[Rfam]
RNA sequence: AGCUUUCCACAGUGGCAGUAAUCAUAACCAAUGAGUUAAUCUGAGGUGUGAUUAUUGCUAGUUGAAAAUAUCUCGUCCUCUCCCCCUUCCUGUGGGUAGAUGGUACAGUACUACUGUAUGACAGCAGAAACUGU
Numbered sequence: 001a002g003c004u005u006u007c008c009a010c011a012g013u014g015g016c017a018g019u020a021a022u023c024a025u026a027a028c029c030a031a032u033g034a035g036u037u038a039a040u041c042u043g044a045g046g047u048g049u050g051a052u053u054a055u056u057g058c059u060a061g062u063u064g065a066a067a068a069u070a071u072c073u074c075g076u077c078c079u080c081u082c083c084c085c086c087u088u089c090c091u092g093u094g095g096g097u098a099g100a101u102g103g104u105a106c107a108g109u110a111c112u113a114c115u116g117u118a119u120g121a122c123a124g125c126a127g128a129a130a131c132u133g134u
Base pairs, nucleotide, nucleotide: 021052022051023050024049025048027047028046029045034042035041078108079107082103083102086099087098089096090095121134122133123132124131
Notes: This 134-nucleotide RNA from Chelonoidis abingdonii belongs to the Rfam family "U4 spliceosomal RNA". Rfam classes the family as a spliceosomal small nuclear RNA. The family has 177 seed sequences and 32,178 matches in Rfam 15.1. Pairs were carried over by alignment from the consensus structure, which is taken from published work. The family is grouped with related families in Rfam's "U4 clan". About the family: U4 small nuclear RNA (U4 snRNA) is a component of the major U2-dependent spliceosome. The organism belongs to Chelonoidis nigra species complex, within Eukaryota.